[Rfam]
A member of the RNA family "mir-27 microRNA precursor family" from Albula goreensis, 79 nucleotides long. A reference for the family is Chen et al. (2005), "The developmental miRNA profiles of zebrafish as determined by small RNA cloning", Genes Dev. Pairs were carried over by alignment from the consensus structure, which was predicted with RNAalifold. Its family is annotated with miRNA-mediated post-transcriptional gene silencing and RISC complex in the Gene Ontology. It scores 69 bits against the family's covariance model. The source organism's lineage runs through Eukaryota, Bilateria, Vertebrata, Albulidae and Albula.

RNA sequence: GUGAGGUGCAGGACUUGGCUCGCUUUGUGAACAGAUCUCGGAAAGCCCGUGUUCACAGUGGCUAAGUUCCGCUCCUCAG
Numbered sequence: 001g002u003g004a005g006g007u008g009c010a011g012g013a014c015u016u017g018g019c020u021c022g023c024u025u026u027g028u029g030a031a032c033a034g035a036u037c038u039c040g041g042a043a044a045g046c047c048c049g050u051g052u053u054c055a056c057a058g059u060g061g062c063u064a065a066g067u068u069c070c071g072c073u074c075c076u077c078a079g
Stems, first nucleotide, its partner, number of pairs: 011069010027056007